This 79-nucleotide RNA from Cyclopterus lumpus belongs to the Rfam family "mir-219 microRNA precursor family". NCBI's taxonomy places the organism under Eukaryota, Vertebrata, Gnathostomata, Cyclopterinae, Cyclopterus. Pairs were carried over by alignment from the consensus structure, which was predicted with RNAalifold.
[Rfam]
RNA sequence: UCUGGUGUUGAUUGUCCAAACGCAAUUCUUGUGUUACUUCUCCAUGUCCAGGAGUUGUGGAUGGACAUCGUGCCCCAGA
Numbered sequence: 001u002c003u004g005g006u007g008u009u010g011a012u013u014g015u016c017c018a019a020a021c022g023c024a025a026u027u028c029u030u031g032u033g034u035u036a037c038u039u040c041u042c043c044a045u046g047u048c049c050a051g052g053a054g055u056u057g058u059g060g061a062u063g064g065a066c067a068u069c070g071u072g073c074c075c076c077a078g079a
Stems, first nucleotide, its partner, number of pairs: 002078004007073001009070004014066005021059011